RNA: RAGATH-18 RNA
Nucleotides: 073
Base pairs, nucleotide, nucleotide: 001071002070003069004068005067009060010059011058012057013056022055023054024053030048031047032046035044036043
Number, partner (000 for none) and nucleotide at each position: 001071a002070c003069u004068g005067u006000g007000g008000a009060c010059u011058g012057u013056a014000c015000a016000a017000g018000a019000a020000c021000u022055u023054g024053u025000g026000a027000g028000u029000a030048g031047c032046g033000u034000a035044u036043u037000a038000c039000u040000u041000g042000u043036a044035a045000u046032c047031g048030c049000a050000a051000a052000a053024g054023c055022a056013u057012a058011c059010a060009g061000g062000a063000u064000g065000a066000a067005g068004c069003a070002g071001u072000a073000a